[Rfam]
RNA sequence: UGCACUCACUGCUGUAAAUCACUCUGGAUAAGAGCGUCUGCUGAAUGACUAAAA
Numbered sequence: 001u002g003c004a005c006u007c008a009c010u011g012c013u014g015u016a017a018a019u020c021a022c023u024c025u026g027g028a029u030a031a032g033a034g035c036g037u038c039u040g041c042u043g044a045a046u047g048a049c050u051a052a053a054a
Base pairs, nucleotide, nucleotide: 013043014041015040016039020036022034023033024032025031
RNA: UnaL2 LINE 3' element